The record is a 128-nucleotide sequence from Pipistrellus kuhlii, which matches "Small nucleolar RNA SNORA33" in Rfam. Rfam describes the family as follows. ACA33 is a member of the H/ACA class of snoRNA that guide the sites of modification of uridines to pseudouridines. Pairs were carried over by alignment from the consensus structure, which was predicted with PFOLD. NCBI's taxonomy places the organism under Eukaryota, Metazoa, Mammalia, Laurasiatheria, Pipistrellus. Rfam links the family to the GO terms RNA processing and nucleolus. The match comes from Rfam's covariance-model search (114 bits).
Nucleotides: 128
Stems, first nucleotide, its partner, number of pairs: 001056001015041005069121004081108007089100003
Number, partner (000 for none) and nucleotide at each position: 001056a002000a003000u004000a005000c006000a007000u008000u009000u010000a011000a012000a013000a014000g015041u016040c017039u018038g019037c020000u021000u022000a023000c024000c025000u026000g027000a028000a029000u030000g031000a032000g033000u034000u035000c036000u037019g038018c039017a040016g041015a042000a043000a044000u045000u046000u047000a048000g049000a050000g051000a052000a053000a054000g055000c056001u057000g058000g059000c060000a061000a062000u063000a064000g065000u066000a067000a068000a069121g070120c071119c072118a073000g074000g075000u076000u077000a078000c079000a080000a081108g082107c083106c084105u085104u086103a087102a088000a089100g090099a091098c092000a093000u094000u095000g096000a097000a098091g099090u100089c101000a102087u103086u104085a105084a106083g107082g108081u109000u110000c111000c112000u113000g114000a115000a116000a117000a118072u119071g120070g121069c122000u123000a124000u125000a126000a127000g128000a